The family of this 163-nucleotide RNA from Henningerozyma blattae is "Small nucleolar RNA snR70". By type it is a C/D-box small nucleolar RNA. Lineage of the source: Eukaryota > Ascomycota > saccharomyceta > Henningerozyma > Henningerozyma blattae.
RNA sequence: UCACAUGAUGAUUCUUAUUUCGACCGGGCGGGCAUACUUUAGUAUCGAGAACUAGCAGUUCUUACAAUGUCUCUCUUUCGUGUACAAAUUUUUUGAAGGAGGGUCGUAGGAGUGUUAUAAUCUAGUUGUUAGAGAAGUGAUGAUUGGUCUUAGAUAGCUGAUU
Numbered sequence: 001u002c003a004c005a006u007g008a009u010g011a012u013u014c015u016u017a018u019u020u021c022g023a024c025c026g027g028g029c030g031g032g033c034a035u036a037c038u039u040u041a042g043u044a045u046c047g048a049g050a051a052c053u054a055g056c057a058g059u060u061c062u063u064a065c066a067a068u069g070u071c072u073c074u075c076u077u078u079c080g081u082g083u084a085c086a087a088a089u090u091u092u093u094u095g096a097a098g099g100a101g102g103g104u105c106g107u108a109g110g111a112g113u114g115u116u117a118u119a120a121u122c123u124a125g126u127u128g129u130u131a132g133a134g135a136a137g138u139g140a141u142g143a144u145u146g147g148u149c150u151u152a153g154a155u156a157g158c159u160g161a162u163u
Stems, first nucleotide, its partner, number of pairs: 007158001009156002016152002022149005035142002039140003043136001045133002048129001050127006057113001059111001061110002067107003071103009

The literature on the family includes a 1999 paper in Acta Biochim Pol by Filipowicz et al., "Structure and biogenesis of small nucleolar RNAs acting as guides for ribosomal RNA modification".